[Rfam]
RNA sequence: CAUGCGGCCUGAACUUUGGGGAGUAGUCGGCUUCCGGUCCCGCCGGAAGAACCUGUGUCAACAUGAUCGGCCCGCAGGCCGUGGCGCAGGUGGCCAGCACCGCUGGCUU
Numbered sequence: 001c002a003u004g005c006g007g008c009c010u011g012a013a014c015u016u017u018g019g020g021g022a023g024u025a026g027u028c029g030g031c032u033u034c035c036g037g038u039c040c041c042g043c044c045g046g047a048a049g050a051a052c053c054u055g056u057g058u059c060a061a062c063a064u065g066a067u068c069g070g071c072c073c074g075c076a077g078g079c080c081g082u083g084g085c086g087c088a089g090g091u092g093g094c095c096a097g098c099a100c101c102g103c104u105g106g107c108u109u
Stems, first nucleotide, its partner, number of pairs: 031049003051091010068081005092108007
Dot-bracket structure: ..............................(((.............))).((((((((((.......(((((....)))))))))))))))(((((((...))))))).
RNA: Manganese Mn2+ riboswitch aptamer (yybP-ykoY)